[Rfam]
RNA: SAM riboswitch aptamer (S box leader)
Organism: Bacillus pseudomycoides
RNA sequence: UUCUUAUCACGAGAGGUGGAGGGACUGGCCCUAUGAAACCUCGGCAGCGGAUUCAAUAUGAAUACUGUGCCAAUUCCAGCAAGUGAAAGACUUGAAAGAUAAGAA
Numbered sequence: 001u002u003c004u005u006a007u008c009a010c011g012a013g014a015g016g017u018g019g020a021g022g023g024a025c026u027g028g029c030c031c032u033a034u035g036a037a038a039c040c041u042c043g044g045c046a047g048c049g050g051a052u053u054c055a056a057u058a059u060g061a062a063u064a065c066u067g068u069g070c071c072a073a074u075u076c077c078a079g080c081a082a083g084u085g086a087a088a089g090a091c092u093u094g095a096a097a098g099a100u101a102a103g104a105a
Base pairs, nucleotide, nucleotide: 001105002104003103004102005101006100007099008098013042014041015040016039017038021031022030023029025079026078027077028076043071044070045069046068048067049066051063052062053061054060075097080094081093082092083091084090